[Rfam]
Shown here is a 231-nucleotide RNA sequence from Trinickia caryophylli, a member of the family "Burkholderia sRNA Bp1_Cand871_SIPHT".
RNA sequence: UCGCCCACAAUGCCUUCAACGGUUUCAACACGGAUGUUGUUGAACGCCGGUCACUUUCGAUGUGCGCAAUGCAUGACAAAUCGAAGGCUUGGCUGGAUCCCGAAUUUGGGGAACAUCUUUGUUGGAGCCGUUGCAGGUGGCAAUGCAGCGCCUGUUUGGUUCCUUCAUUGGUCUCCUCGCGCUAACCCCGUAGCGUGUGGUUUUUAGCGGGCCGCUGGCCCGCUUUUUUUU
Numbered sequence: 001u002c003g004c005c006c007a008c009a010a011u012g013c014c015u016u017c018a019a020c021g022g023u024u025u026c027a028a029c030a031c032g033g034a035u036g037u038u039g040u041u042g043a044a045c046g047c048c049g050g051u052c053a054c055u056u057u058c059g060a061u062g063u064g065c066g067c068a069a070u071g072c073a074u075g076a077c078a079a080a081u082c083g084a085a086g087g088c089u090u091g092g093c094u095g096g097a098u099c100c101c102g103a104a105u106u107u108g109g110g111g112a113a114c115a116u117c118u119u120u121g122u123u124g125g126a127g128c129c130g131u132u133g134c135a136g137g138u139g140g141c142a143a144u145g146c147a148g149c150g151c152c153u154g155u156u157u158g159g160u161u162c163c164u165u166c167a168u169u170g171g172u173c174u175c176c177u178c179g180c181g182c183u184a185a186c187c188c189c190g191u192a193g194c195g196u197g198u199g200g201u202u203u204u205u206a207g208c209g210g211g212c213c214g215c216u217g218g219c220c221c222g223c224u225u226u227u228u229u230u231u
Base pairs, nucleotide, nucleotide: 005171006170007169018132019131020130021129022128023127024126025125026124027123028122029121030120032118033117034116035115036114037113038078039077040076042072045066046065047064081095083093098112099111100110101109134154135153136152137151138150175200176199178197179196180195181194182193183192184191206224207223208222209221210220211219212218213217

Source information:
Lineage of the source: Bacteria > Betaproteobacteria > Burkholderiales > Burkholderiaceae > Trinickia. The family's RNA type in Rfam is small RNA. The match comes from Rfam's covariance-model search (163 bits). Rfam links the family to the GO term bacterial biofilm matrix.